[Rfam]
RNA sequence: CAGUGAGGUAGAGGCGCGAUAUUUAACAGUCCUUGGUGGAGUGCGAGAAAACGAUGAGGCCAGGGAGAAGGAAAUGUCGCCGAAGCUUGUAAUAUGCUCGGUAUUACAUGCUGGGUCUGCAGUUAAUAGCUGCAGGACUGUCUCAAUAAAUUCCCCGAUUUAUUGAGUUGAGCUAUCUCAUUU
Numbered sequence: 001c002a003g004u005g006a007g008g009u010a011g012a013g014g015c016g017c018g019a020u021a022u023u024u025a026a027c028a029g030u031c032c033u034u035g036g037u038g039g040a041g042u043g044c045g046a047g048a049a050a051a052c053g054a055u056g057a058g059g060c061c062a063g064g065g066a067g068a069a070g071g072a073a074a075u076g077u078c079g080c081c082g083a084a085g086c087u088u089g090u091a092a093u094a095u096g097c098u099c100g101g102u103a104u105u106a107c108a109u110g111c112u113g114g115g116u117c118u119g120c121a122g123u124u125a126a127u128a129g130c131u132g133c134a135g136g137a138c139u140g141u142c143u144c145a146a147u148a149a150a151u152u153c154c155c156c157g158a159u160u161u162a163u164u165g166a167g168u169u170g171a172g173c174u175a176u177c178u179c180a181u182u183u
Stems, first nucleotide, its partner, number of pairs: 006178006016080009031065007084112003088108008113139002116136008142167009

Rfam assigns this 183-nucleotide RNA sequence from Brevibacillus panacihumi to the family "Lysine riboswitch aptamer". NCBI's taxonomy places the organism under Bacteria, Bacillati, Paenibacillaceae, Brevibacillus, Brevibacillus panacihumi. The literature on the family includes a 2003 paper in Genes Dev by Sudarsan et al., "An mRNA structure in bacteria that controls gene expression by binding lysine".